[Rfam]
RNA sequence: UGCAGUCAAGUCAAAUUCAGCACCUGCUCCUAUCAUAGCGGGUGCUGGCUCAGGUGACUGCCAUAGCAGUCUGUGCCACAGUAGCUAUUGGGCCUGGCCUCUGUCCUGAGGCCUGGGAAUCAGUUGGCUACAGACACUG
Numbered sequence: 001u002g003c004a005g006u007c008a009a010g011u012c013a014a015a016u017u018c019a020g021c022a023c024c025u026g027c028u029c030c031u032a033u034c035a036u037a038g039c040g041g042g043u044g045c046u047g048g049c050u051c052a053g054g055u056g057a058c059u060g061c062c063a064u065a066g067c068a069g070u071c072u073g074u075g076c077c078a079c080a081g082u083a084g085c086u087a088u089u090g091g092g093c094c095u096g097g098c099c100u101c102u103g104u105c106c107u108g109a110g111g112c113c114u115g116g117g118a119a120u121c122a123g124u125u126g127g128c129u130a131c132a133g134a135c136a137c138u139g
Stems, first nucleotide, its partner, number of pairs: 002061004018047011081131006093117005
RNA: Small nucleolar RNA SNORA5